Overview: mir-31 microRNA precursor family: an 80-nucleotide RNA from Scyliorhinus torazame. Its family is annotated with RISC complex and gene silencing by miRNA in the Gene Ontology. Clan: mir-31 microRNA precursor family.

RNA sequence: AGCUUGAGGGAAGGCAAGAUGUUGGCAUAGCAGUUGUGGUUGUAACCUGCUAUGCCUACGUACUGCCAUCUUUCCUGUCU
Number, nucleotide and partner (000 for none) at each position: 001a000002g000003c000004u000005u000006g074007a073008g072009g071010g070011a069012a000013g067014g066015c065016a064017a000018g000019a061020u060021g059022u000023u000024g056025g055026c054027a053028u052029a051030g050031c049032a000033g000034u000035u000036g000037u000038g000039g000040u000041u000042g000043u000044a000045a000046c000047c000048u000049g031050c030051u029052a028053u027054g026055c025056c024057u000058a000059c021060g020061u019062a000063c000064u016065g015066c014067c013068a000069u011070c010071u009072u008073u007074c006075c000076u000077g000078u000079c000080u000
About this RNA:
The source organism's lineage runs through Eukaryota, Opisthokonta, Bilateria, Galeoidea and Scyliorhinus.